[Rfam]
RNA sequence: GCCCGUUUGAUCCUCGGUGGUCCGGGGCGCAGGCUUCAAACCUGUGGCCGUCGUGAGACGGAGUGGUUCGAUUCCACCUGAUGGGC
Numbered sequence: 001g002c003c004c005g006u007u008u009g010a011u012c013c014u015c016g017g018u019g020g021u022c023c024g025g026g027g028c029g030c031a032g033g034c035u036u037c038a039a040a041c042c043u044g045u046g047g048c049c050g051u052c053g054u055g056a057g058a059c060g061g062a063g064u065g066g067u068u069c070g071a072u073u074c075c076a077c078c079u080g081a082u083g084g085g086c
Stems, first nucleotide, its partner, number of pairs: 001086007009078001012027006028046006048061005063077004
The record is an 86-nucleotide RNA from Pediculus humanus, which matches "Selenocysteine transfer RNA" in Rfam. The match comes from Rfam's covariance-model search (78 bits). Its Rfam clan is "tRNA clan".